Description:
The family of this 73-nucleotide RNA sequence from Mycoplasma sp. CAG:776 is "tRNA".
[Rfam]
RNA sequence: UGCCCUAUAGCCAAGCGGUAAGGCAGCGGGCUCUGACCCCGCGAUUUCGUAGGUUCGAAUCCUACUAGGGCAG
Numbered sequence: 001u002g003c004c005c006u007a008u009a010g011c012c013a014a015g016c017g018g019u020a021a022g023g024c025a026g027c028g029g030g031c032u033c034u035g036a037c038c039c040c041g042c043g044a045u046u047u048c049g050u051a052g053g054u055u056c057g058a059a060u061c062c063u064a065c066u067a068g069g070g071c072a073g
Stems, first nucleotide, its partner, number of pairs: 001072007010024003026042005049065005
The organism belongs to Mycoplasma, within Bacteria.